[Rfam]
RNA: 7SK RNA
Organism: Ursus americanus
RNA sequence: GGAUGUGAGGGCAAUCUGGCUGUGAUAUCUGUCACCCCAUUGAUGGCCAGGGUUGAUUCAGCUGAUCUGGCUGGCUAGGCAGGUGUCUCCUUCCUCUCUCACUGCUCCAUGUGCAUCCCUCCCAAAGCUGUGCACUUGGAAGAAGAGAAAGACCUUCCCUGAUAGCAAAGGACCGUUUUUCGGUCAAGGGUAUAUGGGUAGCUGCACUCCCCUGCUAGGACGUCCAAACAAGCUCUCAAGGUCCAUUUGUAGGAGAAUGUAGGGUAGUCAAGCUUCCGAGAUUCCAGACGCAUCCAAAUGAGGCACCGCAUGUGGCACUCUGCCUUUCUUU
Numbered sequence: 001g002g003a004u005g006u007g008a009g010g011g012c013a014a015u016c017u018g019g020c021u022g023u024g025a026u027a028u029c030u031g032u033c034a035c036c037c038c039a040u041u042g043a044u045g046g047c048c049a050g051g052g053u054u055g056a057u058u059c060a061g062c063u064g065a066u067c068u069g070g071c072u073g074g075c076u077a078g079g080c081a082g083g084u085g086u087c088u089c090c091u092u093c094c095u096c097u098c099u100c101a102c103u104g105c106u107c108c109a110u111g112u113g114c115a116u117c118c119c120u121c122c123c124a125a126a127g128c129u130g131u132g133c134a135c136u137u138g139g140a141a142g143a144a145g146a147g148a149a150a151g152a153c154c155u156u157c158c159c160u161g162a163u164a165g166c167a168a169a170g171g172a173c174c175g176u177u178u179u180u181c182g183g184u185c186a187a188g189g190g191u192a193u194a195u196g197g198g199u200a201g202c203u204g205c206a207c208u209c210c211c212c213u214g215c216u217a218g219g220a221c222g223u224c225c226a227a228a229c230a231a232g233c234u235c236u237c238a239a240g241g242u243c244c245a246u247u248u249g250u251a252g253g254a255g256a257a258u259g260u261a262g263g264g265u266a267g268u269c270a271a272g273c274u275u276c277c278g279a280g281a282u283u284c285c286a287g288a289c290g291c292a293u294c295c296a297a298a299u300g301a302g303g304c305a306c307c308g309c310a311u312g313u314g315g316c317a318c319u320c321u322g323c324c325u326u327u328c329u330u331u
Stems, first nucleotide, its partner, number of pairs: 001108003005102007014092001018090002024087010035074002037070003042067003046062002116171002121165001122139004127135001141160002147157003201273003207267002210264006223254003228250005296331003300326005305319001308316002